Shown here is a 219-nucleotide RNA sequence from Vigna radiata, a member of the family "Early nodulin 40". Rfam classes the family as a non-coding RNA gene. The literature on the family includes a 2007 paper in Nucleic Acids Res by Gultyaev and Roussis, "Identification of conserved secondary structures and expansion segments in enod40 RNAs reveals new enod40 homologues in plants".

RNA sequence: AUGGAGAAAAAGGAGUGUGAGAGGGUCCUUACCCUUCACACUCCUCCACUUUCAACAGUUUGCUUGUGCUUAGCUUUGGCUUCUCUAAUCAACAAGGGAUGUGUUUAAACAUUCUGUGAGUGGCAGAAGCAGAUAUGCAUUCUCCAAAGGAGGAGAGGCUAUGGCUACAGUCAGGCAAACCGGCAAGUCACAAAAAGGCAAUGGACUCCAUUGGGGUCU
Numbered sequence: 001a002u003g004g005a006g007a008a009a010a011a012g013g014a015g016u017g018u019g020a021g022a023g024g025g026u027c028c029u030u031a032c033c034c035u036u037c038a039c040a041c042u043c044c045u046c047c048a049c050u051u052u053c054a055a056c057a058g059u060u061u062g063c064u065u066g067u068g069c070u071u072a073g074c075u076u077u078g079g080c081u082u083c084u085c086u087a088a089u090c091a092a093c094a095a096g097g098g099a100u101g102u103g104u105u106u107a108a109a110c111a112u113u114c115u116g117u118g119a120g121u122g123g124c125a126g127a128a129g130c131a132g133a134u135a136u137g138c139a140u141u142c143u144c145c146a147a148a149g150g151a152g153g154a155g156a157g158g159c160u161a162u163g164g165c166u167a168c169a170g171u172c173a174g175g176c177a178a179a180c181c182g183g184c185a186a187g188u189c190a191c192a193a194a195a196a197g198g199c200a201a202u203g204g205a206c207u208c209c210a211u212u213g214g215g216g217u218c219u
Stems, first nucleotide, its partner, number of pairs: 017046001058180006075170002204218005
The family's consensus secondary structure is taken from published work. Gene Ontology term of the family: nodulation. The family has 35 seed sequences and 341 matches in Rfam 15.1.